[Rfam]
RNA sequence: GGUCAUGAGCGCCAGCGCGAAGCCCCGGCUCGCUGGCCGGCAACCCUCCACCGCGGUGGGGUGCCCCGGGUGACGACCUGGCGUCGGCGAGGUGUCGGCGCAAGCGCGGGCU
Numbered sequence: 001g002g003u004c005a006u007g008a009g010c011g012c013c014a015g016c017g018c019g020a021a022g023c024c025c026c027g028g029c030u031c032g033c034u035g036g037c038c039g040g041c042a043a044c045c046c047u048c049c050a051c052c053g054c055g056g057u058g059g060g061g062u063g064c065c066c067c068g069g070g071u072g073a074c075g076a077c078c079u080g081g082c083g084u085c086g087g088c089g090a091g092g093u094g095u096c097g098g099c100g101c102a103a104g105c106g107c108g109g110g111c112u
Base pairs, nucleotide, nucleotide: 001078002077003076004075009038011037012036013035014034015033016032021030022029039065040064041063044061045060046059048056049055081101082100083099084098085097086096087095088094089093
Rfam assigns this 112-nucleotide sequence from Angustibacter sp. Root456 to the family "SAM (S-adenosyl methionine) riboswitch aptamer".
Pairs were carried over by alignment from the consensus structure, which is taken from published work.